Shown here is a 45-nucleotide sequence from Pontibacillus chungwhensis, a member of the family "PreQ1 (pre queuosine) riboswitch aptamer". Its family is annotated with queuosine biosynthetic process in the Gene Ontology. The family has 43 seed sequences and 873 matches in Rfam 15.1. The match comes from Rfam's covariance-model search (44 bits). Taxonomically the source falls in Pontibacillus chungwhensis (Bacteria, Bacillati, Bacillota, Caryophanales). The literature on the family includes a 2023 paper in Nucleic Acids Res by Schroeder et al., "A riboswitch separated from its ribosome-binding site still regulates translation". About the family: This family is a bacterial riboswitch that binds to the metabolite preQ1, an intermediate in the biosynthesis of the modified nucleoside queuosine from GTP. One example of this riboswitch is located in the leader of the Bacillus subtilis ykvJKLM (queCDEF) operon which encodes four genes necessary for queuosine production. PreQ1 binding to the riboswitch aptamer is thought to induce premature transcription termination within the leader to down-regulate expression of these genes.
[Rfam]
RNA sequence: UCGGGAGAGGUUCUAGCUAAACCCUCUAUAAAAAACUAAAGAACA
Dot-bracket structure: .....(((((...[[.......))))).........]].......